[Rfam]
RNA sequence: GCGUGCCUGGCUCCCUGUAUGCCAUUUGCAGAGCCCAUCAGAACAGUGAUGGCCUUAACUAAUGGCGUGCGAGGAGUCAUGCAUGU
Number, nucleotide and partner (000 for none) at each position: 001g086002c085003g084004u083005g082006c081007c000008u079009g078010g077011c076012u075013c074014c073015c000016u071017g070018u069019a068020u067021g066022c065023c064024a063025u000026u000027u000028g059029c000030a000031g000032a000033g000034c000035c000036c000037a000038u000039c000040a000041g000042a000043a000044c000045a000046g000047u000048g000049a000050u000051g000052g000053c000054c000055u000056u000057a000058a000059c028060u000061a000062a000063u024064g023065g022066c021067g020068u019069g018070c017071g016072a000073g014074g013075a012076g011077u010078c009079a008080u000081g006082c005083a004084u003085g002086u001
Shown here is an 86-nucleotide sequence from Phaseolus vulgaris, a member of the family "mir-160 microRNA precursor family". The family has 7 seed sequences and 1,502 matches in Rfam 15.1. Pairs were carried over by alignment from the consensus structure, which was predicted with PFOLD. The match comes from Rfam's covariance-model search (68 bits).